[Rfam]
RNA sequence: AUCGGUUAGAGGGACAAAGCGAGGUGGCGAAAAUGUUCGUGGACGCAGCGGUCUUGGCCGGAGUCGGCACGGUUCUGUUGAUGUUCGCCUUCUUCGGCGGCAUCGGUUAUUUCAUCUGGAGCGAUUCGCACAAGCAGCGCAAGCGCGGCUGACGCUCCAGAACACCAGGCACGCAAGGCAAUUUGGGCGACUUAGGUCGCCCUUUUUUUCG
Numbered sequence: 001a002u003c004g005g006u007u008a009g010a011g012g013g014a015c016a017a018a019g020c021g022a023g024g025u026g027g028c029g030a031a032a033a034u035g036u037u038c039g040u041g042g043a044c045g046c047a048g049c050g051g052u053c054u055u056g057g058c059c060g061g062a063g064u065c066g067g068c069a070c071g072g073u074u075c076u077g078u079u080g081a082u083g084u085u086c087g088c089c090u091u092c093u094u095c096g097g098c099g100g101c102a103u104c105g106g107u108u109a110u111u112u113c114a115u116c117u118g119g120a121g122c123g124a125u126u127c128g129c130a131c132a133a134g135c136a137g138c139g140c141a142a143g144c145g146c147g148g149c150u151g152a153c154g155c156u157c158c159a160g161a162a163c164a165c166c167a168g169g170c171a172c173g174c175a176a177g178g179c180a181a182u183u184u185g186g187g188c189g190a191c192u193u194a195g196g197u198c199g200c201c202c203u204u205u206u207u208u209u210c211g
Base pairs, nucleotide, nucleotide: 003099004098006096048058049057077084078083169179170178172177185202186201187200188199189198190197191196
A member of the RNA family "PhrS" from Zestomonas carbonaria, 211 nucleotides long. For this family Rfam cites "The small RNA PhrS stimulates synthesis of the Pseudomonas aeruginosa quinolone signal" (Sonnleitner et al., Mol Microbiol, 2011). It is annotated as a small RNA. Pairs were carried over by alignment from the consensus structure, which was predicted with CMfinder. The organism belongs to Zestomonas, within Bacteria.